[Rfam]
RNA: Glycine riboswitch aptamer
RNA sequence: CACUCUGGAGAGACCGGUUGAAUCCGGCGCCGAAGGGGCAAGAAGCGCGACACGACGACGUCCUCGUCCGCCGCUUCCAAACUCUCAGGCAAAAGGACAGAGGG
Numbered sequence: 001c002a003c004u005c006u007g008g009a010g011a012g013a014c015c016g017g018u019u020g021a022a023u024c025c026g027g028c029g030c031c032g033a034a035g036g037g038g039c040a041a042g043a044a045g046c047g048c049g050a051c052a053c054g055a056c057g058a059c060g061u062c063c064u065c066g067u068c069c070g071c072c073g074c075u076u077c078c079a080a081a082c083u084c085u086c087a088g089g090c091a092a093a094a095g096g097a098c099a100g101a102g103g104g
Stems, first nucleotide, its partner, number of pairs: 001104001003102005014027004029090003032086002036084003042077006